Source information: A member of the RNA family "Small nucleolar RNA U6-53/MBII-28" from Chinchilla lanigera, 105 nucleotides long. On this family, see Huttenhofer et al., EMBO J 2001: "RNomics: an experimental approach that identifies 201 candidates for novel, small, non-messenger RNAs in mouse". NCBI's taxonomy places the organism under Eukaryota, Opisthokonta, Mammalia, Boreoeutheria, Chinchilla. By type it is a C/D-box small nucleolar RNA. Its family is annotated with nucleolus and RNA processing in the Gene Ontology. Pairs were carried over by alignment from the consensus structure.

RNA sequence: CCCCUGAGAUGAGUUGCUGUGCUAAUACUGAUACUGGGUAGGGAGUUUUAAAACUGCCUUGCAUGUUUUGAUGAAUUCUACUUCUUGUAAAUCUCUCUGAGGGGC
Number, nucleotide and partner (000 for none) at each position: 001c104002c103003c102004c101005u000006g000007a000008g000009a000010u000011g000012a000013g000014u000015u000016g000017c000018u000019g000020u000021g000022c000023u000024a000025a000026u000027a000028c000029u000030g000031a000032u000033a000034c000035u000036g000037g000038g000039u056040a055041g054042g000043g000044a000045g000046u000047u000048u000049u000050a000051a000052a000053a000054c041055u040056g039057c000058c000059u000060u000061g000062c000063a000064u000065g000066u000067u000068u000069u000070g000071a000072u000073g000074a000075a000076u000077u000078c000079u000080a000081c000082u000083u000084c000085u000086u000087g000088u000089a000090a000091a000092u000093c000094u000095c000096u000097c000098u000099g000100a000101g004102g003103g002104g001105c000